[Rfam]
RNA sequence: AAAGGGAUAGUUCAAUAGGUAGAACAUUAGUUUCCUAAACUAUAAAUACAGGUUCAAGUCCUAUUAUCUUUU
Numbered sequence: 001a002a003a004g005g006g007a008u009a010g011u012u013c014a015a016u017a018g019g020u021a022g023a024a025c026a027u028u029a030g031u032u033u034c035c036u037a038a039a040c041u042a043u044a045a046a047u048a049c050a051g052g053u054u055c056a057a058g059u060c061c062u063a064u065u066a067u068c069u070u071u072u
Base pairs, nucleotide, nucleotide: 001071002070003069004068005067007065010025011024012023013022028042029041030040031039048064050062051061052060
A member of the RNA family "tRNA" from Circinella minor, 72 nucleotides long. Gene Ontology term of the family: triplet codon-amino acid adaptor activity. The family's RNA type in Rfam is transfer RNA. The base pairs follow the family's consensus structure, which is taken from published work.